[Rfam]
MIR1520 microRNA precursor family: a 108-nucleotide RNA sequence from Glycine max. The family is grouped with related families in Rfam's "MIR1520 microRNA precursor clan". The source organism's lineage runs through Eukaryota, Streptophyta, Fabales, Fabaceae and Glycine subgen. Soja. The family's consensus secondary structure was predicted with RNAalifold. A search with the family's covariance model found it, with a score of 59 bits.
RNA sequence: UUUUAAAAAAACGUUGACGGUCACGUGUCACGUUCUGAUUAGACAUUAACAACAAUAAUGCAUUUUUAUCGUCCAAUUAAAACAUGACACACGUAACAAGUUUCUUUA
Numbered sequence: 001u002u003u004u005a006a007a008a009a010a011a012c013g014u015u016g017a018c019g020g021u022c023a024c025g026u027g028u029c030a031c032g033u034u035c036u037g038a039u040u041a042g043a044c045a046u047u048a049a050c051a052a053c054a055a056u057a058a059u060g061c062a063u064u065u066u067u068a069u070c071g072u073c074c075a076a077u078u079a080a081a082a083c084a085u086g087a088c089a090c091a092c093g094u095a096a097c098a099a100g101u102u103u104c105u106u107u108a
Stems, first nucleotide, its partner, number of pairs: 020097002023094001025092002029086002033082002036079001038077003